[Rfam]
RNA sequence: AAUCGAAGGUCCCAGCAGAGAGGUAGAAACUCCUUGAUGAGGCCUCUCUAACAAAAUAAUAACCUUCGAACAUCGAGAUGCUUUCAGCCGUAACGUUGGAUGCCCAGAGCAGUUUCCAUUUUGGGGUCAUCUACAUCUAGCGGCUAUAUUCAG
Numbered sequence: 001a002a003u004c005g006a007a008g009g010u011c012c013c014a015g016c017a018g019a020g021a022g023g024u025a026g027a028a029a030c031u032c033c034u035u036g037a038u039g040a041g042g043c044c045u046c047u048c049u050a051a052c053a054a055a056a057u058a059a060u061a062a063c064c065u066u067c068g069a070a071c072a073u074c075g076a077g078a079u080g081c082u083u084u085c086a087g088c089c090g091u092a093a094c095g096u097u098g099g100a101u102g103c104c105c106a107g108a109g110c111a112g113u114u115u116c117c118a119u120u121u122u123g124g125g126g127u128c129a130u131c132u133a134c135a136u137c138u139a140g141c142g143g144c145u146a147u148a149u150u151c152a153g
Stems, first nucleotide, its partner, number of pairs: 003069007011020001013018001026047001030041003087144005093138001099131002102128001103126003107122003